[Rfam]
About this RNA:
The record is a 72-nucleotide sequence from Actinoplanes awajinensis, which matches "tRNA" in Rfam. It is annotated as a transfer RNA.
RNA sequence: GUGGUUGUAGCUCAACGGUAGAGCGCCGCCUCGCCAUGGCGGAGGUUCCGGGUUCGAAUCCCGGUAGCCACU
Numbered sequence: 001g002u003g004g005u006u007g008u009a010g011c012u013c014a015a016c017g018g019u020a021g022a023g024c025g026c027c028g029c030c031u032c033g034c035c036a037u038g039g040c041g042g043a044g045g046u047u048c049c050g051g052g053u054u055c056g057a058a059u060c061c062c063g064g065u066a067g068c069c070a071c072u
Stems, first nucleotide, its partner, number of pairs: 001071007010024004026042005048064005